[Rfam]
RNA: nhaA-I RNA
RNA sequence: GGGUGUCCACACCGCUUUGGUGGGACAGGUUUUUGCGAUGGUCGGGCCGCCACG
Numbered sequence: 001g002g003g004u005g006u007c008c009a010c011a012c013c014g015c016u017u018u019g020g021u022g023g024g025a026c027a028g029g030u031u032u033u034u035g036c037g038a039u040g041g042u043c044g045g046g047c048c049g050c051c052a053c054g
Base pairs, nucleotide, nucleotide: 005026006025007024008023010022011021012020036054037053039052040051041050042049